MIR2670 microRNA precursor family: a 198-nucleotide RNA sequence from Medicago truncatula. The match comes from Rfam's covariance-model search (133 bits). Its family is annotated with miRNA-mediated post-transcriptional gene silencing and RISC complex in the Gene Ontology.
[Rfam]
RNA sequence: UUGGGGCAAAAUAGUGGCUAGUCCGCUUGGGUAAAAAGAGAUCAACAUUUGGGAUAAAAUUAAUUUUGUUUCUUUUUACUCAAUUUUUUUUACCGUGGAUAAAAAGAAACUUCUUGGGUAUAAAAAGAACCAAAUUUAAAUUUACCUAAGUUGAUGAUUUCGUUUCCCCCAAGAUUGUUGGUCACUAUUUUUCCCCAA
Numbered sequence: 001u002u003g004g005g006g007c008a009a010a011a012u013a014g015u016g017g018c019u020a021g022u023c024c025g026c027u028u029g030g031g032u033a034a035a036a037a038g039a040g041a042u043c044a045a046c047a048u049u050u051g052g053g054a055u056a057a058a059a060u061u062a063a064u065u066u067u068g069u070u071u072c073u074u075u076u077u078a079c080u081c082a083a084u085u086u087u088u089u090u091u092a093c094c095g096u097g098g099a100u101a102a103a104a105a106g107a108a109a110c111u112u113c114u115u116g117g118g119u120a121u122a123a124a125a126a127g128a129a130c131c132a133a134a135u136u137u138a139a140a141u142u143u144a145c146c147u148a149a150g151u152u153g154a155u156g157a158u159u160u161c162g163u164u165u166c167c168c169c170c171a172a173g174a175u176u177g178u179u180g181g182u183c184a185c186u187a188u189u190u191u192u193c194c195c196c197a198a
Base pairs, nucleotide, nucleotide: 003196004195005194006193008191009190010189011188012187013186014185015184016183017182018181019180020179021178022177026173027172028171029170030169031168034165035164041158042157043156044155045151049149050148051147052146053145055144056143057142058141060139061138062137063136065134066133067132068131070129071128072127073126074125075124076123077120078119079118080117081116082115083114086106087105088104089103090102091101092100094098